[Rfam]
Shown here is a 45-nucleotide sequence from Oceaniferula marina, a member of the family "Acido-Lenti-1 RNA".
RNA sequence: CCCAGGGCGGAGCCCUGGGCUAUGAUAGGAUGCCCCUUCAGGGCA
Numbered sequence: 001c002c003c004a005g006g007g008c009g010g011a012g013c014c015c016u017g018g019g020c021u022a023u024g025a026u027a028g029g030a031u032g033c034c035c036c037u038u039c040a041g042g043g044c045a
Stems, first nucleotide, its partner, number of pairs: 001019008032044004
The organism belongs to Oceaniferula, within Bacteria.
It is annotated as a small RNA.